[Rfam]
RNA sequence: UUUGAGUAGGGAAAUGGUGUCUUCCUUUUAAAAACCGCAAUAGCUGAUGGCGCCUACAAUAUU
Dot-bracket structure: .........[[[[..((((((]]]]...........((....))....)))))).........

Fluoride riboswitch aptamer (crcB RNA motif): a 63-nucleotide RNA from Albibacterium bauzanense. It scores 47 bits against the family's covariance model. NCBI's taxonomy places the organism under Bacteria, Pseudomonadati, Sphingobacteriia, Sphingobacteriaceae, Albibacterium.